RNA sequence: CUUUCUUGCUACAUCCUCGCGACUAAUGACAAUACUGAAUAUUUUUACUUAUUUUGUGAAUAUCAGUAUUCUCAUUAGCCGCGCGAACCGAUUGUAGCUAAAGAAGCUCACAUUAUUUAGAAAUAAAUUGACAAAAAUCUAUUUCCUAAAAUCAUUUUGUAAGUGUAAACUAAUUCUAAAAAUUUUUUCCGCUUUUCUAGCAGAAAAGGGGCCUACUGGCCCCUUUUC
Number, nucleotide and partner (000 for none) at each position: 001c103002u102003u101004u100005c000006u000007u000008g098009c000010u000011a095012c094013a093014u000015c000016c000017u000018c085019g084020c083021g082022a000023c078024u077025a076026a075027u074028g073029a072030c000031a000032a000033u000034a000035c000036u000037g000038a000039a000040u000041a000042u000043u000044u000045u000046u000047a000048c000049u000050u000051a000052u000053u000054u000055u000056g000057u000058g000059a000060a000061u000062a000063u000064c000065a000066g000067u000068a000069u000070u000071c000072u029073c028074a027075u026076u025077a024078g023079c000080c000081g000082c021083g020084c019085g018086a000087a000088c000089c000090g000091a000092u000093u013094g012095u011096a000097g000098c008099u000100a004101a003102a002103g001104a000105a000106g000107c000108u000109c000110a000111c000112a183113u182114u000115a000116u000117u000118u000119a000120g000121a000122a000123a000124u000125a000126a000127a000128u000129u000130g000131a000132c000133a000134a000135a000136a000137a000138u000139c000140u000141a000142u000143u000144u000145c000146c000147u000148a000149a000150a000151a000152u000153c000154a000155u000156u000157u000158u000159g000160u000161a000162a000163g000164u000165g000166u000167a000168a000169a000170c000171u000172a000173a000174u000175u000176c000177u000178a000179a000180a000181a000182a113183u112184u000185u000186u000187u000188u000189c000190c000191g000192c000193u000194u000195u000196u000197c000198u000199a000200g000201c000202a000203g000204a000205a000206a000207a000208g223209g222210g221211g220212c219213c218214u000215a000216c000217u000218g213219g212220c211221c210222c209223c208224u000225u000226u000227u000228c000
A member of the RNA family "SraG RNA" from Arsenophonus sp. ENCA, 228 nucleotides long. Rfam classes the family as a small RNA. Rfam describes the family as follows. This RNA was discovered in E. coli during a large scale screen. The literature on the family includes a 2001 paper in Curr Biol by Argaman et al., "Novel small RNA-encoding genes in the intergenic regions of Escherichia coli". Gene Ontology terms of the family: sRNA-mediated gene silencing and mRNA binding.